Small nucleolar RNA SNORA75: a 135-nucleotide RNA sequence from Nothobranchius furzeri. Pairs were carried over by alignment from the consensus structure, which was predicted with PFOLD. U23 belongs to the H/ACA class of snoRNAs. snoRNAs bind a number of proteins (including dyskerin, Gar1p and Nop10p in the case of the H/ACA class) to form snoRNP complexes. On this family, see Bachellerie et al., Biochimie 2002: "The expanding snoRNA world". Rfam classes the family as an H/ACA-box small nucleolar RNA.

RNA sequence: ACCUUCUCAUGAGCUCCUCUUAAUCCUAUCGGUGAUUAUGCACGGAUUCGCACGAGAAGCAGAGCCAAAGCACAGUCGAAACAGACUUAGCCCUGUCUGCAGGCGGGUUUUGUCCAUGUCCGCUGUGCAACAAGU
Numbered sequence: 001a002c003c004u005u006c007u008c009a010u011g012a013g014c015u016c017c018u019c020u021u022a023a024u025c026c027u028a029u030c031g032g033u034g035a036u037u038a039u040g041c042a043c044g045g046a047u048u049c050g051c052a053c054g055a056g057a058a059g060c061a062g063a064g065c066c067a068a069a070g071c072a073c074a075g076u077c078g079a080a081a082c083a084g085a086c087u088u089a090g091c092c093c094u095g096u097c098u099g100c101a102g103g104c105g106g107g108u109u110u111u112g113u114c115c116a117u118g119u120c121c122g123c124u125g126u127g128c129a130a131c132a133a134g135u
Stems, first nucleotide, its partner, number of pairs: 003059006013051002015046003021038005070128006090109001092107004